[Rfam]
RNA: Acido-Lenti-1 RNA
Organism: Bremerella alba
RNA sequence: CCAGGGGUUAUCACCCCUGGCUAUUUUCGACCGGCCUUCCAGGCCU
Numbered sequence: 001c002c003a004g005g006g007g008u009u010a011u012c013a014c015c016c017c018u019g020g021c022u023a024u025u026u027u028c029g030a031c032c033g034g035c036c037u038u039c040c041a042g043g044c045c046u
Stems, first nucleotide, its partner, number of pairs: 001020008033045005